RNA: Group II catalytic intron D1-D4-3
Organism: Paraburkholderia diazotrophica
RNA sequence: GUCGUCGCGAGGCGGGGUCUGAAGGAAGCGUGUAGCAAAGCCACGACCUGACGAACAGAAACCAGAUACGAGGCCUACCCAGCCGGACGAGCGAGCAAAUGAUCGGGAAGUCCACAACCAUCAAGGGCUGGUUGGUAGAUCUGGCAGGUGUGUGGUGAAGGCGGUUGGGC
Numbered sequence: 001g002u003c004g005u006c007g008c009g010a011g012g013c014g015g016g017g018u019c020u021g022a023a024g025g026a027a028g029c030g031u032g033u034a035g036c037a038a039a040g041c042c043a044c045g046a047c048c049u050g051a052c053g054a055a056c057a058g059a060a061a062c063c064a065g066a067u068a069c070g071a072g073g074c075c076u077a078c079c080c081a082g083c084c085g086g087a088c089g090a091g092c093g094a095g096c097a098a099a100u101g102a103u104c105g106g107g108a109a110g111u112c113c114a115c116a117a118c119c120a121u122c123a124a125g126g127g128c129u130g131g132u133u134g135g136u137a138g139a140u141c142u143g144g145c146a147g148g149u150g151u152g153u154g155g156u157g158a159a160g161g162c163g164g165u166u167g168g169g170c
Base pairs, nucleotide, nucleotide: 002015003014004013005012006011028170029169031167032166035162036161040156041155042154043153044152045151046149047148048147049146050145062144063143064142065141066140067139073136074135075134077132079131080130081129082128083127084126085113086112087111088110092105093104094103